Background:
Shown here is a 161-nucleotide RNA from Octodon degus, a member of the family "U1 spliceosomal RNA". Rfam links the family to the GO terms mRNA 5'-splice site recognition, U1 snRNP and pre-mRNA 5'-splice site binding. The literature on the family includes a 1997 paper in Nucleic Acids Res by Zwieb, "The uRNA database". Rfam's curators write: U1 is a small nuclear RNA (snRNA) component of the spliceosome (involved in pre-mRNA splicing). Its 5' end forms complementary base pairs with the 5' splice junction, thus defining the 5' donor site of an intron. There are significant differences in sequence and secondary structure between metazoan and yeast U1 snRNAs, the latter being much longer (568 nucleotides as compared to 164 nucleotides in human). By type it is a spliceosomal small nuclear RNA. The organism belongs to Octodon, within Eukaryota. The family's consensus secondary structure is taken from published work.
RNA sequence: AGACUUACCUGCCAGGUAAGAUACUAUGAUCUUGAAGGUAGCUUUUCUAUGACCAGGCUUAUAUAUUGUGAUCCAGAUGUGCUGACCCCUGUGAUUUCCCAAAUGUGGGAAACUUGACUGCAUAAUUUGUGGUAGGUAGAUACUGUGUUCACACUUUCCAU
Numbered sequence: 001a002g003a004c005u006u007a008c009c010u011g012c013c014a015g016g017u018a019a020g021a022u023a024c025u026a027u028g029a030u031c032u033u034g035a036a037g038g039u040a041g042c043u044u045u046u047c048u049a050u051g052a053c054c055a056g057g058c059u060u061a062u063a064u065a066u067u068g069u070g071a072u073c074c075a076g077a078u079g080u081g082c083u084g085a086c087c088c089c090u091g092u093g094a095u096u097u098c099c100c101a102a103a104u105g106u107g108g109g110a111a112a113c114u115u116g117a118c119u120g121c122a123u124a125a126u127u128u129g130u131g132g133u134a135g136g137u138a139g140a141u142a143c144u145g146u147g148u149u150c151a152c153a154c155u156u157u158c159c160a161u
Stems, first nucleotide, its partner, number of pairs: 013120003016048001018046004024041004049090001051088001056083003060079003064075001092116003095112001096110004137160001139158002142155001144153003